The record is a 136-nucleotide RNA from Halobacteroides halobius, which matches "Group II catalytic intron D1-D4-4" in Rfam. The base pairs follow the family's consensus structure. The match comes from Rfam's covariance-model search (106 bits). Rfam describes the family as follows. Group II introns are found in rRNA, tRNA and mRNA of organelles in fungi, plants and protists, and also in mRNA in bacteria.
[Rfam]
RNA sequence: CAACGGGUGAAAGUCCCGUCAAGGUAAAAGUCAAAGCCUUGUAGUAGGAUAGCAGUGUGGUGAGAGAUCUAAACAUUGAAGUCUAUUGACAAAGAUAUCGUUAGGAUAUCGAGCAAGUAUUCAGACUAUAACACCA
Numbered sequence: 001c002a003a004c005g006g007g008u009g010a011a012a013g014u015c016c017c018g019u020c021a022a023g024g025u026a027a028a029a030g031u032c033a034a035a036g037c038c039u040u041g042u043a044g045u046a047g048g049a050u051a052g053c054a055g056u057g058u059g060g061u062g063a064g065a066g067a068u069c070u071a072a073a074c075a076u077u078g079a080a081g082u083c084u085a086u087u088g089a090c091a092a093a094g095a096u097a098u099c100g101u102u103a104g105g106a107u108a109u110c111g112a113g114c115a116a117g118u119a120u121u122c123a124g125a126c127u128a129u130a131a132c133a134c135c136a
Stems, first nucleotide, its partner, number of pairs: 020041005048087005053078006062069002094110006113129001115127001
Dot-bracket structure: ...................(((((............)))))......(((((((((((...((....))...))))))....)))))......((((((.....))))))..(.(...........).).......
Its family is annotated with Group II intron splicing in the Gene Ontology.